A member of the RNA family "DnaX ribosomal frameshifting element" from Enterobacillus tribolii, 65 nucleotides long.
Rfam links the family to the GO term translational frameshifting.
It scores 41 bits against the family's covariance model.
Lineage of the source: Bacteria > Gammaproteobacteria > Enterobacterales > Hafniaceae > Enterobacillus.
By type it is a frameshift element.
[Rfam]
RNA sequence: GCCAGGGCGGUACGGAACCAAAAAAGAAUGAGCCGGCCGCGCCUUCAGCCGCGCGUCCGGCGAAC
Numbered sequence: 001g002c003c004a005g006g007g008c009g010g011u012a013c014g015g016a017a018c019c020a021a022a023a024a025a026g027a028a029u030g031a032g033c034c035g036g037c038c039g040c041g042c043c044u045u046c047a048g049c050c051g052c053g054c055g056u057c058c059g060g061c062g063a064a065c
Stems, first nucleotide, its partner, number of pairs: 032061005039054002041049002